[Rfam]
RNA sequence: CGUGUGGUGCCCGGCUUUGGAUCGGGAGAGCGACACGGCCUUACUAUUGAGGU
Numbered sequence: 001c002g003u004g005u006g007g008u009g010c011c012c013g014g015c016u017u018u019g020g021a022u023c024g025g026g027a028g029a030g031c032g033a034c035a036c037g038g039c040c041u042u043a044c045u046a047u048u049g050a051g052g053u
Base pairs, nucleotide, nucleotide: 001037002036003035004034005033007031008030010026011025012024013023014022015020
RNA: L31-Gammaproteobacteria ribosomal protein leader
Organism: Photobacterium sanctipauli